[Rfam]
RNA sequence: GUUCCAUAGACAUUUUGGCAUUCUGUCCACCUCCAUUAUGUCUACAAACAUGAUGAUUUUGGAGGUGGUCAGCAUGCCAAACGGGCUCUGUGUA
Numbered sequence: 001g002u003u004c005c006a007u008a009g010a011c012a013u014u015u016u017g018g019c020a021u022u023c024u025g026u027c028c029a030c031c032u033c034c035a036u037u038a039u040g041u042c043u044a045c046a047a048a049c050a051u052g053a054u055g056a057u058u059u060u061g062g063a064g065g066u067g068g069u070c071a072g073c074a075u076g077c078c079a080a081a082c083g084g085g086c087u088c089u090g091u092g093u094a
Stems, first nucleotide, its partner, number of pairs: 011084001015080006024071002027068008

Rfam assigns this 94-nucleotide sequence from Vigna radiata to the family "MIR394 microRNA precursor family". It scores 67 bits against the family's covariance model. Lineage of the source: Eukaryota > Streptophyta > Pentapetalae > Vigna > Vigna radiata. The family has 19 seed sequences and 724 matches in Rfam 15.1. The base pairs follow the family's consensus structure, which was predicted with WAR. Rfam links the family to the GO terms miRNA-mediated post-transcriptional gene silencing and RISC complex. The literature on the family includes a 2004 paper in Mol Cell by Jones-Rhoades and Bartel, "Computational identification of plant microRNAs and their targets, including a stress-induced miRNA".